[Rfam]
RNA sequence: AAGUGUUUACAGCUCUUUGCUAUUUGUCAAGCAGGUUCUCACUGAGUGGAGCCACU
Numbered sequence: 001a002a003g004u005g006u007u008u009a010c011a012g013c014u015c016u017u018u019g020c021u022a023u024u025u026g027u028c029a030a031g032c033a034g035g036u037u038c039u040c041a042c043u044g045a046g047u048g049g050a051g052c053c054a055c056u
Base pairs, nucleotide, nucleotide: 034053035052036051037050038049040048041047042046